Rfam assigns this 100-nucleotide RNA sequence from Polymorphospora rubra to the family "TPP riboswitch aptamer (THI element)". Vitamin B(1) in its active form thiamin pyrophosphate (TPP) is an essential coenzyme that is synthesised by coupling of pyrimidine and thiazole moieties in bacteria. A search with the family's covariance model found it, with a score of 68 bits. The source organism's lineage runs through Bacteria, Bacillati, Actinomycetota, Micromonosporaceae and Polymorphospora.
RNA sequence: GGCAGUGACACGGGGUGCCCGCCCUUCCGAGCGGGCUGAGAUCACACCCGUCGAACCUGAUCUAGUUCGUACUAGCGAAGGGAUGUCCGGGUGAGACCAC
Numbered sequence: 001g002g003c004a005g006u007g008a009c010a011c012g013g014g015g016u017g018c019c020c021g022c023c024c025u026u027c028c029g030a031g032c033g034g035g036c037u038g039a040g041a042u043c044a045c046a047c048c049c050g051u052c053g054a055a056c057c058u059g060a061u062c063u064a065g066u067u068c069g070u071a072c073u074a075g076c077g078a079a080g081g082g083a084u085g086u087c088c089g090g091g092u093g094a095g096a097c098c099a100c
Stems, first nucleotide, its partner, number of pairs: 007087004011050004016044001017036005056081003062075004